[Rfam]
Rfam assigns this 114-nucleotide sequence from Pseudoduganella ginsengisoli to the family "Glycine riboswitch aptamer".
RNA sequence: CACACUCUGAAGAGCUGCCGGAUUUUGUCGCCCGGUACACCGAAGGAGCAAGCGUCGAACUGCCACAGGGCAGGGGCAUGCGAAAUCUCUCAGGUCCAGAACAGAGGGGGUGUC
Numbered sequence: 001c002a003c004a005c006u007c008u009g010a011a012g013a014g015c016u017g018c019c020g021g022a023u024u025u026u027g028u029c030g031c032c033c034g035g036u037a038c039a040c041c042g043a044a045g046g047a048g049c050a051a052g053c054g055u056c057g058a059a060c061u062g063c064c065a066c067a068g069g070g071c072a073g074g075g076g077c078a079u080g081c082g083a084a085a086u087c088u089c090u091c092a093g094g095u096c097c098a099g100a101a102c103a104g105a106g107g108g109g110g111u112g113u114c
Stems, first nucleotide, its partner, number of pairs: 003108001005106005016037006039095003042091002046089003
About this RNA:
NCBI's taxonomy places the organism under Bacteria, Pseudomonadati, Betaproteobacteria, Oxalobacteraceae, Pseudoduganella. A search with the family's covariance model found it, with a score of 37 bits. Its family is annotated with glycine biosynthetic process in the Gene Ontology.